[Rfam]
Rfam assigns this 135-nucleotide RNA from Vibrio furnissii to the family "Vibrio regulatory RNA of OmpA".
Rfam classes the family as an antisense RNA.
Lineage of the source: Bacteria > Pseudomonadota > Vibrionales > Vibrionaceae > Vibrio.
The base pairs follow the family's consensus structure, which is taken from published work.

RNA sequence: GUAGUUGCCAGAGCUUUAAGAGUUUUACAGGCCGUCGAACGUUCUUCUUUCUGCCAACUGACAUUUACGCUGCUUUUUCUUAUUAACUCCUAUGUUUGUAUCAGCCCAGAUCGUCUUUGUUCUGGGCUUUUUUUC
Numbered sequence: 001g002u003a004g005u006u007g008c009c010a011g012a013g014c015u016u017u018a019a020g021a022g023u024u025u026u027a028c029a030g031g032c033c034g035u036c037g038a039a040c041g042u043u044c045u046u047c048u049u050u051c052u053g054c055c056a057a058c059u060g061a062c063a064u065u066u067a068c069g070c071u072g073c074u075u076u077u078u079c080u081u082a083u084u085a086a087c088u089c090c091u092a093u094g095u096u097u098g099u100a101u102c103a104g105c106c107c108a109g110a111u112c113g114u115c116u117u118u119g120u121u122c123u124g125g126g127c128u129u130u131u132u133u134u135c
Stems, first nucleotide, its partner, number of pairs: 001068004006063002009060003016053001020051002031049001034046001103128008112119001